[Rfam]
RNA sequence: GGGGUGCGGUAGACCUACCUCCACGUGGUGUACCCCAGGCAACGUAUUCUCAUACGGCAAAGAAGUCUAU
Numbered sequence: 001g002g003g004g005u006g007c008g009g010u011a012g013a014c015c016u017a018c019c020u021c022c023a024c025g026u027g028g029u030g031u032a033c034c035c036c037a038g039g040c041a042a043c044g045u046a047u048u049c050u051c052a053u054a055c056g057g058c059a060a061a062g063a064a065g066u067c068u069a070u
Base pairs, nucleotide, nucleotide: 001036002035003034004033005032006031007030017029018028019027043056044055045054046053047052
RNA: HDV ribozyme from F. prausnitzii